[Rfam]
RNA sequence: GGGUGGUUACCAGAGUGGCCAAAUGGGGCAGACUGUAAAUCUGCUGGCUCUUGCCUACGGUGGUUCGAAUCCAUCACCACCCA
Numbered sequence: 001g002g003g004u005g006g007u008u009a010c011c012a013g014a015g016u017g018g019c020c021a022a023a024u025g026g027g028g029c030a031g032a033c034u035g036u037a038a039a040u041c042u043g044c045u046g047g048c049u050c051u052u053g054c055c056u057a058c059g060g061u062g063g064u065u066c067g068a069a070u071c072c073a074u075c076a077c078c079a080c081c082c083a
Stems, first nucleotide, its partner, number of pairs: 001082007010026003028044005059075005
A member of the RNA family "tRNA" from Hallella bergensis, 83 nucleotides long.
It is annotated as a transfer RNA.
Lineage of the source: Bacteria > Bacteroidia > Prevotellaceae > Hallella > Hallella bergensis.